[Rfam]
RNA sequence: UGCUAAGGUUGAGGCGCAGUUAUUAUCAGUAGAUAACAAAAGGGUGAUUCCGUUUUAAUUGUUAUUGAAAGGAGUAACUGCCGAAAUGAAUGAUUUUAUCACGGUCAUUUGUUGGGGUUAUUUUCGAAAGAGGUAACACUGCCAUAGUCUAUUGUGUUGUUAAACUAUGGAGCGCUAUUGUGGGA
Numbered sequence: 001u002g003c004u005a006a007g008g009u010u011g012a013g014g015c016g017c018a019g020u021u022a023u024u025a026u027c028a029g030u031a032g033a034u035a036a037c038a039a040a041a042g043g044g045u046g047a048u049u050c051c052g053u054u055u056u057a058a059u060u061g062u063u064a065u066u067g068a069a070a071g072g073a074g075u076a077a078c079u080g081c082c083g084a085a086a087u088g089a090a091u092g093a094u095u096u097u098a099u100c101a102c103g104g105u106c107a108u109u110u111g112u113u114g115g116g117g118u119u120a121u122u123u124u125c126g127a128a129a130g131a132g133g134u135a136a137c138a139c140u141g142c143c144a145u146a147g148u149c150u151a152u153u154g155u156g157u158u159g160u161u162a163a164a165c166u167a168u169g170g171a172g173c174g175c176u177a178u179u180g181u182g183g184g185a
Stems, first nucleotide, its partner, number of pairs: 007179003011175001016081009032066008085113011114140002117137008142170007
Lysine riboswitch aptamer: a 185-nucleotide sequence from Vibrio ezurae. Rfam describes the family as follows. Riboswitches are metabolite binding domains within certain messenger RNAs that serve as precision sensors for their corresponding targets. The source organism's lineage runs through Bacteria, Pseudomonadota, Gammaproteobacteria, Vibrionales and Vibrio ezurae.